[Rfam]
Nucleotides: 109
Stems, first nucleotide, its partner, number of pairs: 002109005008103005013097001015095007023087004028083005036075001
Number, partner (000 for none) and nucleotide at each position: 001000g002109u003108u004107g005106g006105a007000g008103g009102g010101u011100u012099c013097c014000a015095a016094a017093g018092g019091g020090a021089u022000c023087g024086c025085a026084u027000u028083g029082a030081u031080c032079u033000a034000a035000u036075g037000a038000c039000u040000u041000u042000u043000g044000a045000u046000g047000u048000c049000u050000a051000a052000a053000u054000g055000a056000u057000g058000u059000u060000c061000a062000u063000c064000u065000u066000u067000a068000g069000u070000c071000u072000u073000u074000u075036c076000a077000u078000u079032g080031g081030a082029u083028c084026a085025u086024g087023c088000g089021a090020u091019c092018c093017c094016u095015u096000a097013g098000g099012g100011a101010a102009u103008u104000u105006u106005c107004c108003a109002g
The family of this 109-nucleotide sequence from Salix purpurea is "mir-393 microRNA precursor family". A search with the family's covariance model found it, with a score of 82 bits. The organism belongs to Salix, within Eukaryota.